RNA sequence: UGCAAAUGAUGUUUUUUCUCACGAUGGUCUUCCAAACCUUCAGGUUCUGACGACAAGGCCUUUUGGCAAAGCUGAUGCAGUCUA
Numbered sequence: 001u002g003c004a005a006a007u008g009a010u011g012u013u014u015u016u017u018c019u020c021a022c023g024a025u026g027g028u029c030u031u032c033c034a035a036a037c038c039u040u041c042a043g044g045u046u047c048u049g050a051c052g053a054c055a056a057g058g059c060c061u062u063u064u065g066g067c068a069a070a071g072c073u074g075a076u077g078c079a080g081u082c083u084a
Stems, first nucleotide, its partner, number of pairs: 001079004
Source information:
This 84-nucleotide RNA from Oryzias javanicus belongs to the Rfam family "Small nucleolar RNA SNORD35". NCBI's taxonomy places the organism under Eukaryota, Neopterygii, Eurypterygia, Acanthomorphata, Oryzias. For this family Rfam cites "Intron-encoded, antisense small nucleolar RNAs: the characterization of nine novel species points to their direct role as guides for the 2'-O-ribose methylation of rRNAs" (Nicoloso et al., J Mol Biol, 1996). The family has 8 seed sequences and 1,842 matches in Rfam 15.1. The family's RNA type in Rfam is C/D-box small nucleolar RNA. Rfam's curators write: U35 is a C/D box snoRNA located in intron 6 of ribosomal protein L13A and intron 3 of ribosomal protein S11 in humans and at homologous positions in mouse and chicken ribosomal protein genes. U35 guides the methylation of 2'-O-ribose sites in 28S rRNA. Gene Ontology terms of the family: nucleolus and RNA processing.